[Rfam]
RNA sequence: GAAUUACAUGAUGAAUAGAAGAUAUUUCCCUAUCGGUUUGAUUGUCGUGAUGAUGGCAUCUCUAAGUAUAUUAGCUCUGUCUUAUCAUUA
Numbered sequence: 001g002a003a004u005u006a007c008a009u010g011a012u013g014a015a016u017a018g019a020a021g022a023u024a025u026u027u028c029c030c031u032a033u034c035g036g037u038u039u040g041a042u043u044g045u046c047g048u049g050a051u052g053a054u055g056g057c058a059u060c061u062c063u064a065a066g067u068a069u070a071u072u073a074g075c076u077c078u079g080u081c082u083u084a085u086c087a088u089u090a
Base pairs, nucleotide, nucleotide: 002089003088004087040060043058044057045056046055
About this RNA:
The record is a 90-nucleotide RNA sequence from Carya illinoinensis, which matches "Small nucleolar RNA Z102/R77" in Rfam. Rfam classes the family as a C/D-box small nucleolar RNA. The match comes from Rfam's covariance-model search (62 bits). Rfam links the family to the GO terms nucleolus and RNA processing. The base pairs follow the family's consensus structure, which was predicted with PFOLD.